The family of this 52-nucleotide RNA sequence from Hypericibacter adhaerens is "ffh sRNA". The organism belongs to Hypericibacter, within Bacteria. It scores 36 bits against the family's covariance model.
[Rfam]
RNA sequence: GGCCCCGAGGGGCCCCGCCCGUCCGCGAGUUUCGCGCACGGGCGCGAAGUCG
Number, nucleotide and partner (000 for none) at each position: 001g000002g000003c000004c000005c000006c000007g000008a000009g000010g000011g000012g000013c000014c000015c000016c044017g043018c042019c041020c040021g039022u038023c000024c000025g035026c034027g033028a032029g000030u000031u000032u028033c027034g026035c025036g000037c000038a022039c021040g020041g019042g018043c017044g016045c000046g000047a000048a000049g000050u000051c000052g000